[Rfam]
RNA sequence: UCUGAUAAUAGAGGCGCGAGAAUGAGGAGUAGCUUUCCUGAGGAUGAUGGAUCCCGGGAUGGAAAGUGAAAGGCAGAUCGCCGAAACAGGAAACAGCCAAUCGGUUUCUUGUUGGGCUGACAUUGAACAAGUGUCAGACUGUCACAAUGGUCACGUUGUGGAGAACUAUUGAAGAG
Numbered sequence: 001u002c003u004g005a006u007a008a009u010a011g012a013g014g015c016g017c018g019a020g021a022a023u024g025a026g027g028a029g030u031a032g033c034u035u036u037c038c039u040g041a042g043g044a045u046g047a048u049g050g051a052u053c054c055c056g057g058g059a060u061g062g063a064a065a066g067u068g069a070a071a072g073g074c075a076g077a078u079c080g081c082c083g084a085a086a087c088a089g090g091a092a093a094c095a096g097c098c099a100a101u102c103g104g105u106u107u108c109u110u111g112u113u114g115g116g117c118u119g120a121c122a123u124u125g126a127a128c129a130a131g132u133g134u135c136a137g138a139c140u141g142u143c144a145c146a147a148u149g150g151u152c153a154c155g156u157u158g159u160g161g162a163g164a165a166c167u168a169u170u171g172a173a174g175a176g
Stems, first nucleotide, its partner, number of pairs: 006171006016081004023075002032067007085113010096102001114140002117137008142161007
This 176-nucleotide sequence from Rossellomorea aquimaris belongs to the Rfam family "Lysine riboswitch aptamer".
On this family, see Rodionov et al., Nucleic Acids Res 2003: "Regulation of lysine biosynthesis and transport genes in bacteria: yet another RNA riboswitch?".
The base pairs follow the family's consensus structure, which is taken from published work.